Overview
The family of this 76-nucleotide RNA from Carlito syrichta is "Small nucleolar RNA SNORD81". Pairs were carried over by alignment from the consensus structure, which was predicted with PFOLD.
RNA sequence: CAAAGACAUGGUGAUAUCACCUCUAUUUGAACUCUCUCAAUGAUUACCUGAAAACAAUAAAAUAUCUCAUAUUAUG
Numbered sequence: 001c002a003a004a005g006a007c008a009u010g011g012u013g014a015u016a017u018c019a020c021c022u023c024u025a026u027u028u029g030a031a032c033u034c035u036c037u038c039a040a041u042g043a044u045u046a047c048c049u050g051a052a053a054a055c056a057a058u059a060a061a062a063u064a065u066c067u068c069a070u071a072u073u074a075u076g
Base pairs, nucleotide, nucleotide: 001076002075003073004072006070
Clan: SNORD26 clan. Its family is annotated with nucleolus and RNA processing in the Gene Ontology. A reference for the family is Smith and Steitz (1998), "Classification of gas5 as a multi-small-nucleolar-RNA (snoRNA) host gene and a member of the 5'-terminal oligopyrimidine gene family reveals common features of snoRNA host genes", Mol Cell Biol. The family's RNA type in Rfam is C/D-box small nucleolar RNA. The match comes from Rfam's covariance-model search (60 bits).